RNA sequence: CGACCCCGUGCGGGAGAGACCCUGCCAGCAGCGCAGGGCGCCGAAGGAGCAACACUCCCCAGCAAACUCUCAGGCACCCAUGACCGCUCGGGCGAG
Dot-bracket structure: .....(((.((((......((((...........)))).(((((..(((...(........)....))))).)))........)))).))).....
Numbered sequence: 001c002g003a004c005c006c007c008g009u010g011c012g013g014g015a016g017a018g019a020c021c022c023u024g025c026c027a028g029c030a031g032c033g034c035a036g037g038g039c040g041c042c043g044a045a046g047g048a049g050c051a052a053c054a055c056u057c058c059c060c061a062g063c064a065a066a067c068u069c070u071c072a073g074g075c076a077c078c079c080a081u082g083a084c085c086g087c088u089c090g091g092g093c094g095a096g
Stems, first nucleotide, its partner, number of pairs: 006091003010087004020038004040075003043071002047069003053062001
Glycine riboswitch aptamer: a 96-nucleotide RNA from Saccharopolyspora rhizosphaerae.
Its family is annotated with glycine biosynthetic process in the Gene Ontology.
Taxonomically the source falls in Saccharopolyspora (Bacteria, Bacillati, Actinomycetota, Pseudonocardiales).
Pairs were carried over by alignment from the consensus structure.